RNA: U4atac minor spliceosomal RNA
RNA sequence: ACUUUCCUUGUCAUGGGGCAGAAUGGGAAGCUCAAUGAACGCGUAGUGAGAGUCUCCCUGCUGACACCAUAACAACACAUGAGCACCACCUGAGCUUCGGCUGCGGGACACGGUGCAAUUUUGGAAAC
Dot-bracket structure: ....(((((.....)))).)(.(...((.((((.....((.....))..)))).))..).).....................(((((.((((.((....))..))))....)))))............
Numbered sequence: 001a002c003u004u005u006c007c008u009u010g011u012c013a014u015g016g017g018g019c020a021g022a023a024u025g026g027g028a029a030g031c032u033c034a035a036u037g038a039a040c041g042c043g044u045a046g047u048g049a050g051a052g053u054c055u056c057c058c059u060g061c062u063g064a065c066a067c068c069a070u071a072a073c074a075a076c077a078c079a080u081g082a083g084c085a086c087c088a089c090c091u092g093a094g095c096u097u098c099g100g101c102u103g104c105g106g107g108a109c110a111c112g113g114u115g116c117a118a119u120u121u122u123g124g125a126a127a128c
Stems, first nucleotide, its partner, number of pairs: 005020001006018004021061001023059001027056002030053004039047002083116005089107004094101002